U5 spliceosomal RNA: a 119-nucleotide RNA sequence from Lactuca saligna. U5 RNA is a component of both types of known spliceosome.
RNA sequence: AGCCAUGUGGUAAGCACAAAGCGAACUAUUCUUUCGCCUUUUACUAAAGAAUACCGUGUGCUUGCCAUAAACAGUGGCAUACGCCUAUUUUUGGAGAGUCCCUUCCUUCAUUGGAGGGC
Numbered sequence: 001a002g003c004c005a006u007g008u009g010g011u012a013a014g015c016a017c018a019a020a021g022c023g024a025a026c027u028a029u030u031c032u033u034u035c036g037c038c039u040u041u042u043a044c045u046a047a048a049g050a051a052u053a054c055c056g057u058g059u060g061c062u063u064g065c066c067a068u069a070a071a072c073a074g075u076g077g078c079a080u081a082c083g084c085c086u087a088u089u090u091u092u093g094g095a096g097a098g099u100c101c102c103u104u105c106c107u108u109c110a111u112u113g114g115a116g117g118g119c
Base pairs, nucleotide, nucleotide: 003077004076005075006074008067009066010065011064012063013062014061015060016059017058018057027053028052029051030050031049032048033047034046100118101117102116103115104114105113

Rfam links the family to the GO terms U5 snRNP and spliceosomal tri-snRNP complex assembly. The base pairs follow the family's consensus structure, which is taken from published work. It scores 94 bits against the family's covariance model.